[Rfam]
RNA sequence: AGCGAGGCUAGAGUCACGCCUGGACACUGACCUGUUGUCUUGGUGUGCUAGAGUGCUCGCAGAGGAAAUUGUCUCUGCUUAUUCGUUGGCUGUCGUCUAUUGUGGCCCAGUCAAUCACCAGCUCAGACACAUGC
Numbered sequence: 001a002g003c004g005a006g007g008c009u010a011g012a013g014u015c016a017c018g019c020c021u022g023g024a025c026a027c028u029g030a031c032c033u034g035u036u037g038u039c040u041u042g043g044u045g046u047g048c049u050a051g052a053g054u055g056c057u058c059g060c061a062g063a064g065g066a067a068a069u070u071g072u073c074u075c076u077g078c079u080u081a082u083u084c085g086u087u088g089g090c091u092g093u094c095g096u097c098u099a100u101u102g103u104g105g106c107c108c109a110g111u112c113a114a115u116c117a118c119c120a121g122c123u124c125a126g127a128c129a130c131a132u133g134c
Base pairs, nucleotide, nucleotide: 002060003059004058005057006056007054008053009052012049013048015047016046017045018044019043020042023039024038025037026036073126074125077122078121079120085115086114087113088112089111091109092108096104